[Rfam]
RNA sequence: GUGGGAUGAGGUAGUAGGUUGUAUAGUUUUAGUGUCACACCCGCACUGGGAGAUAACUAUUCAACCUACUGUCUUUCUCAA
Numbered sequence: 001g002u003g004g005g006a007u008g009a010g011g012u013a014g015u016a017g018g019u020u021g022u023a024u025a026g027u028u029u030u031a032g033u034g035u036c037a038c039a040c041c042c043g044c045a046c047u048g049g050g051a052g053a054u055a056a057c058u059a060u061u062c063a064a065c066c067u068a069c070u071g072u073c074u075u076u077c078u079c080a081a
Base pairs, nucleotide, nucleotide: 002080003079004078005077006076008075009074010073011072012071013070014069015068016067017066018065019064020063021062023060024059025058026057027056032046033045034044035043
RNA: let-7 microRNA precursor family
Organism: Myripristis murdjan